[Rfam]
RNA sequence: AGCCUUUGUGUUGCCUGUUCACUUUGGAAACUAGUGAAUGUGGUGUCAAAAAAGGCUUAAAUUAAACACUUUGUAGCCUUUCCCUGCCCUUAAAUUUGAUAUCUUUGCUGUAGGAGCUGCAUAAGUAACAGCU
Numbered sequence: 001a002g003c004c005u006u007u008g009u010g011u012u013g014c015c016u017g018u019u020c021a022c023u024u025u026g027g028a029a030a031c032u033a034g035u036g037a038a039u040g041u042g043g044u045g046u047c048a049a050a051a052a053a054g055g056c057u058u059a060a061a062u063u064a065a066a067c068a069c070u071u072u073g074u075a076g077c078c079u080u081u082c083c084c085u086g087c088c089c090u091u092a093a094a095u096u097u098g099a100u101a102u103c104u105u106u107g108c109u110g111u112a113g114g115a116g117c118u119g120c121a122u123a124a125g126u127a128a129c130a131g132c133u
Stems, first nucleotide, its partner, number of pairs: 002056006009048002012045004016040008068126004072121006083114005089107001093102001
RNA: Small nucleolar RNA SNORA13